RNA sequence: CUCCCGACAGUCCUCUGAUUCUACUUUCCGAAAGGAAGGACAUGGAUCAGAACUUAACCCUAAGUAAUUG
Numbered sequence: 001c002u003c004c005c006g007a008c009a010g011u012c013c014u015c016u017g018a019u020u021c022u023a024c025u026u027u028c029c030g031a032a033a034g035g036a037a038g039g040a041c042a043u044g045g046a047u048c049a050g051a052a053c054u055u056a057a058c059c060c061u062a063a064g065u066a067a068u069u070g
Stems, first nucleotide, its partner, number of pairs: 009054003015050004
The record is a 70-nucleotide part of an RNA from Drepanopeziza brunnea, which matches "Ascomycota telomerase RNA" in Rfam. The match comes from Rfam's covariance-model search (96 bits). A reference for the family is Qi et al. (2013), "The common ancestral core of vertebrate and fungal telomerase RNAs", Nucleic Acids Res. Lineage of the source: Eukaryota > Dikarya > saccharomyceta > Helotiales > Drepanopeziza brunnea f. sp. 'multigermtubi'.